[Rfam]
A member of the RNA family "Small nucleolar RNA SNORA42/SNORA80 family" from Leptobrachium leishanense, 135 nucleotides long.
By type it is an H/ACA-box small nucleolar RNA.
On this family, see Schattner et al., RNA 2006: "A computational screen for mammalian pseudouridylation guide H/ACA RNAs".
NCBI's taxonomy places the organism under Eukaryota, Metazoa, Euteleostomi, Megophryidae, Leptobrachium.
The base pairs follow the family's consensus structure, which was predicted with RNAalifold.
Rfam links the family to the GO terms nucleolus and RNA processing.
RNA sequence: GCAUGGCAAUGGAUUUAUGGUCGGGUUAUUCUGUACCCUCCCAUAGUGUACUCCAUGCUAAAGUGAGUAGCUGCUCCGAACCAUUGACAAGCCUGAAUGCUCGUGGGCCUGUUCUCUGAUGUGGGCUGCACAUUC
Dot-bracket structure: ((((((.(......((((((..((((........))))..))))))..).).).))))............(.((((.....((...(.(.((((..........)))).)..)...))....)))).).......
Numbered sequence: 001g002c003a004u005g006g007c008a009a010u011g012g013a014u015u016u017a018u019g020g021u022c023g024g025g026u027u028a029u030u031c032u033g034u035a036c037c038c039u040c041c042c043a044u045a046g047u048g049u050a051c052u053c054c055a056u057g058c059u060a061a062a063g064u065g066a067g068u069a070g071c072u073g074c075u076c077c078g079a080a081c082c083a084u085u086g087a088c089a090a091g092c093c094u095g096a097a098u099g100c101u102c103g104u105g106g107g108c109c110u111g112u113u114c115u116c117u118g119a120u121g122u123g124g125g126c127u128g129c130a131c132a133u134u135c
Stems, first nucleotide, its partner, number of pairs: 001058004005053001006051001008049001015046006023038004071128001073126004082118002087113001089110001091108004